[Rfam]
RNA sequence: UGACGUCACGCGGGAGAGUCCCCAUCCAGGUUUACGGGUGGGGCGCCGAAGGGGCAAUCUCCCCGACAAGCUCUCAGGCGCCAGGACCGCGCGACCGAG
Numbered sequence: 001u002g003a004c005g006u007c008a009c010g011c012g013g014g015a016g017a018g019u020c021c022c023c024a025u026c027c028a029g030g031u032u033u034a035c036g037g038g039u040g041g042g043g044c045g046c047c048g049a050a051g052g053g054g055c056a057a058u059c060u061c062c063c064c065g066a067c068a069a070g071c072u073c074u075c076a077g078g079c080g081c082c083a084g085g086a087c088c089g090c091g092c093g094a095c096c097g098a099g
Stems, first nucleotide, its partner, number of pairs: 006094002009091005020043008045079003048075002052073003058066002

Shown here is a 99-nucleotide sequence from Ornithinimicrobium pratense, a member of the family "Glycine riboswitch aptamer".
Gene Ontology term of the family: glycine biosynthetic process.
NCBI's taxonomy places the organism under Bacteria, Bacillati, Actinomycetota, Micrococcales, Ornithinimicrobium.